Overview:
Small nucleolar RNA snR8: a 206-nucleotide sequence from Saccharomycodes ludwigii. The organism belongs to Saccharomycodes, within Eukaryota. Clan: SNORA56 clan. Rfam links the family to the GO terms nucleolus and RNA processing. The literature on the family includes a 1988 paper in Mol Cell Biol by Parker et al., "Genetic analysis of small nuclear RNAs in Saccharomyces cerevisiae: viable sextuple mutant".
RNA sequence: ACGAAACAUAUUUUUAUAGCCUUCUAUUCACUUUGCCAUUCGUGUAUUACAGAUGAAUUUUUGGAUGAAGGGGAAAAGAAGCGCUAGAGCAAGUUUAAUAUUUUAAUAUUAAUAUCGUGCACGUCCUCAUACUGGUAUUGAACUUUUUUUUUUUAAUUUUCUUUAUUAGAUACUCAAUUACUGGUAACUGCGUAAUCGAUACAAAU
Numbered sequence: 001a002c003g004a005a006a007c008a009u010a011u012u013u014u015u016a017u018a019g020c021c022u023u024c025u026a027u028u029c030a031c032u033u034u035g036c037c038a039u040u041c042g043u044g045u046a047u048u049a050c051a052g053a054u055g056a057a058u059u060u061u062u063g064g065a066u067g068a069a070g071g072g073g074a075a076a077a078g079a080a081g082c083g084c085u086a087g088a089g090c091a092a093g094u095u096u097a098a099u100a101u102u103u104u105a106a107u108a109u110u111a112a113u114a115u116c117g118u119g120c121a122c123g124u125c126c127u128c129a130u131a132c133u134g135g136u137a138u139u140g141a142a143c144u145u146u147u148u149u150u151u152u153u154u155a156a157u158u159u160u161c162u163u164u165a166u167u168a169g170a171u172a173c174u175c176a177a178u179u180a181c182u183g184g185u186a187a188c189u190g191c192g193u194a195a196u197c198g199a200u201a202c203a204a205a206u
Stems, first nucleotide, its partner, number of pairs: 019084002022080002031070002034063002038058006114200004121193003132184003136180001137178005144172001155162001